[Rfam]
RNA sequence: AUAAAAAAGGAGCAAUACCAAUCCUCUUGAGAAAACAAGAAAUUGGUUAUUGCUCCUUUAC
Numbered sequence: 001a002u003a004a005a006a007a008a009g010g011a012g013c014a015a016u017a018c019c020a021a022u023c024c025u026c027u028u029g030a031g032a033a034a035a036c037a038a039g040a041a042a043u044u045g046g047u048u049a050u051u052g053c054u055c056c057u058u059u060a061c
Base pairs, nucleotide, nucleotide: 006059007058008057009056010055011054012053013052014051015050016049017048021044025040026039027038028037029036
This 61-nucleotide RNA from Cucumis melo belongs to the Rfam family "Plastid-psbA-4 3UTR RNA". For this family Rfam cites "Retrograde signaling in plants: A critical review focusing on the GUN pathway and beyond" (Richter et al., Plant Commun, 2023). The family's RNA type in Rfam is cis-regulatory element. The source organism's lineage runs through Eukaryota, Viridiplantae, Streptophyta, Streptophytina and Cucumis. Rfam describes the family as follows. Plastid psbA-4 is a non-coding RNA (ncRNA) present in plastids. It was identified in inverted repeat sequences in the 3 prime untranslate region (3UTR) of photosystem II quinone-binding protein (psbA).